[Rfam]
RNA: mir-785 microRNA precursor family
Organism: Caenorhabditis briggsae
RNA sequence: UUCGCAACCGUCAGCACAGAGUGCUUCGACUUACACAGAAUUCGUAAAACCAACUGAUGUAAGUGAAUACUCUGUGUUGAUGGUGAUGAUGCUGA
Numbered sequence: 001u002u003c004g005c006a007a008c009c010g011u012c013a014g015c016a017c018a019g020a021g022u023g024c025u026u027c028g029a030c031u032u033a034c035a036c037a038g039a040a041u042u043c044g045u046a047a048a049a050c051c052a053a054c055u056g057a058u059g060u061a062a063g064u065g066a067a068u069a070c071u072c073u074g075u076g077u078u079g080a081u082g083g084u085g086a087u088g089a090u091g092c093u094g095a
Stems, first nucleotide, its partner, number of pairs: 002094001004092003007084006014077009025067004030063006